[Rfam]
RNA: MIR7504 microRNA precursor family
RNA sequence: GAUGAGAUAAUGAUAAAUCAGAUUUUUCUCAUGAUUUUUAGUUUUUUCCUCCUAAAAAAAUUUAAAUUUAAUUAAAAAUGCUAAAAAUCAAGAGUAAAAAAUCUAAUUUGUUAUUCUCUUAUU
Numbered sequence: 001g002a003u004g005a006g007a008u009a010a011u012g013a014u015a016a017a018u019c020a021g022a023u024u025u026u027u028c029u030c031a032u033g034a035u036u037u038u039u040a041g042u043u044u045u046u047u048c049c050u051c052c053u054a055a056a057a058a059a060a061u062u063u064a065a066a067u068u069u070a071a072u073u074a075a076a077a078a079u080g081c082u083a084a085a086a087a088u089c090a091a092g093a094g095u096a097a098a099a100a101a102u103c104u105a106a107u108u109u110g111u112u113a114u115u116c117u118c119u120u121a122u123u
Stems, first nucleotide, its partner, number of pairs: 001123007009115010020104003023100005028094003032090007040082002044078004